[Rfam]
RNA sequence: UGAAAGCAGAGGACGGAACGGGCAGCCGUCGCCCAUUGUUAGGAGAUGUGGGAAUUGUCACCCCACCUAUUUCA
Numbered sequence: 001u002g003a004a005a006g007c008a009g010a011g012g013a014c015g016g017a018a019c020g021g022g023c024a025g026c027c028g029u030c031g032c033c034c035a036u037u038g039u040u041a042g043g044a045g046a047u048g049u050g051g052g053a054a055u056u057g058u059c060a061c062c063c064c065a066c067c068u069a070u071u072u073c074a
Stems, first nucleotide, its partner, number of pairs: 001074005009067001012030005021059004032043001048066005
The family of this 74-nucleotide RNA is "skipping-rope RNA".
It is annotated as a small RNA.
The family's consensus secondary structure is taken from published work.